[Rfam]
RNA: Small nucleolar RNA Z103
Organism: Malus baccata
RNA sequence: AUGGAAGUGAUGAUUAUUUCUCCAAAUGAUGGAGGCUGAAAGAAGUCAGCAUACUGCGUCUCUAUAUUACAAAGAGGCACCAAACUCGCUAUAUCUAAUCCAU
Numbered sequence: 001a002u003g004g005a006a007g008u009g010a011u012g013a014u015u016a017u018u019u020c021u022c023c024a025a026a027u028g029a030u031g032g033a034g035g036c037u038g039a040a041a042g043a044a045g046u047c048a049g050c051a052u053a054c055u056g057c058g059u060c061u062c063u064a065u066a067u068u069a070c071a072a073a074g075a076g077g078c079a080c081c082a083a084a085c086u087c088g089c090u091a092u093a094u095c096u097a098a099u100c101c102a103u
Stems, first nucleotide, its partner, number of pairs: 001103005